Rfam assigns this 238-nucleotide part of an RNA from Zygotorulaspora mrakii to the family "Eukaryotic large subunit ribosomal RNA". Taxonomically the source falls in Zygotorulaspora (Eukaryota, Opisthokonta, Ascomycota, Saccharomycotina). The family's consensus secondary structure is taken from published work. On this family, see Yusupov et al., Science 2001: "Crystal structure of the ribosome at 5.5 A resolution". A search with the family's covariance model found it, with a score of 3346 bits.
[Rfam]
RNA sequence: GGCAUUUGAUCAGACAUGGCGUUUUGCGCCCCCUGCUCCUUGUGGGCGGGGGACUCUCGCAGCUCGCUGGGCCAGCAUCGGUUUUUGCGGCAGGAGAAAGCCCGGGGAACGUGGCUUGCGCCUUUUGGGGCAAGUGUUUAUAGCCCUGGGGAAUACUGCCAGCGGGGACCGAGGACUGCGGUGCUUGUCGCCAAGGAUGCUGGCAUAAUGGUUAUAUGCCGCCCGUCUUGAAACACGG
Dot-bracket structure: (((((.((((((....(((((..(.....................................)..)))))...(((((((....................................................................................................................)))))))......)))))).)))))..((((........))))